[Rfam]
RNA sequence: AUUCCCAUUUUAGUACCAUUCAUUCGGUGCACCAAGAAUGACUGGCUAUGCUAAUGGGAGAGAGCAACACUGUCACAGUCUGAAGGAGAGGUUGGCAAUAUCCAUCUCUCCUAUAUGAAGUGGCAAUACAUUUUGAU
Numbered sequence: 001a002u003u004c005c006c007a008u009u010u011u012a013g014u015a016c017c018a019u020u021c022a023u024u025c026g027g028u029g030c031a032c033c034a035a036g037a038a039u040g041a042c043u044g045g046c047u048a049u050g051c052u053a054a055u056g057g058g059a060g061a062g063a064g065c066a067a068c069a070c071u072g073u074c075a076c077a078g079u080c081u082g083a084a085g086g087a088g089a090g091g092u093u094g095g096c097a098a099u100a101u102c103c104a105u106c107u108c109u110c111c112u113a114u115a116u117g118a119a120g121u122g123g124c125a126a127u128a129c130a131u132u133u134u135g136a137u
Stems, first nucleotide, its partner, number of pairs: 004058004016045003072124004089112003
Background
The family of this 137-nucleotide RNA sequence from Lepisosteus oculatus is "Small nucleolar RNA SNORA29". It scores 73 bits against the family's covariance model. Pairs were carried over by alignment from the consensus structure, which was predicted with PFOLD. The source organism's lineage runs through Eukaryota, Bilateria, Deuterostomia, Euteleostomi and Lepisosteus. On this family, see Huttenhofer et al., EMBO J 2001: "RNomics: an experimental approach that identifies 201 candidates for novel, small, non-messenger RNAs in mouse". By type it is an H/ACA-box small nucleolar RNA. Clan: SNORA20 clan. About the family: ACA29 is a member of the H/ACA class of snoRNA that guide the sites of modification of uridines to pseudouridines.